[Rfam]
RNA: Small nucleolar RNA SNORA8
Organism: Sphenodon punctatus
RNA sequence: UGCACUGUAUGGUAUCUGCAUCCAGCGGCAUCCUCCUGUUGGAUGCUCAAAAAGCAGUGCCACAGCAAUUUCAACAUCUGGCAUCGUUGGUUUUCAUGCUGUUGUGCUUGUUAAGCCUGGUAUUGUUGAUACAAAUCA
Numbered sequence: 001u002g003c004a005c006u007g008u009a010u011g012g013u014a015u016c017u018g019c020a021u022c023c024a025g026c027g028g029c030a031u032c033c034u035c036c037u038g039u040u041g042g043a044u045g046c047u048c049a050a051a052a053a054g055c056a057g058u059g060c061c062a063c064a065g066c067a068a069u070u071u072c073a074a075c076a077u078c079u080g081g082c083a084u085c086g087u088u089g090g091u092u093u094u095c096a097u098g099c100u101g102u103u104g105u106g107c108u109u110g111u112u113a114a115g116c117c118u119g120g121u122a123u124u125g126u127u128g129a130u131a132c133a134a135a136u137c138a
Stems, first nucleotide, its partner, number of pairs: 002060006015053001017051001018046011063128007071120003080108005